Description: This 90-nucleotide RNA from Aquisalibacillus elongatus belongs to the Rfam family "c-di-GMP-I riboswitch aptamer". Rfam's curators write: GEMM was predicted in a large-scale screen for bacterial structured RNA regulatory elements.
RNA sequence: AUAUGAAAAAGGCAAAACCGCUGAAAGGUGGUGACGCAAAGCUAUAGGGACUAAUGAACGUGAAACGUUCGAUGUUAGCCAGCUGCCAGU
Number, nucleotide and partner (000 for none) at each position: 001a000002u000003a000004u000005g000006a000007a000008a000009a000010a000011g000012g037013c036014a000015a000016a000017a032018c031019c030020g029021c028022u027023g000024a000025a000026a000027g022028g021029u020030g019031g018032u017033g000034a000035c000036g013037c012038a000039a000040a084041g083042c082043u081044a000045u000046a000047g080048g079049g076050a075051c074052u000053a000054a000055u000056g070057a069058a068059c067060g066061u065062g000063a000064a000065a061066c060067g059068u058069u057070c056071g000072a000073u000074g051075u050076u049077a000078g000079c048080c047081a043082g042083c041084u040085g000086c000087c000088a000089g000090u000

The organism belongs to Aquisalibacillus, within Bacteria.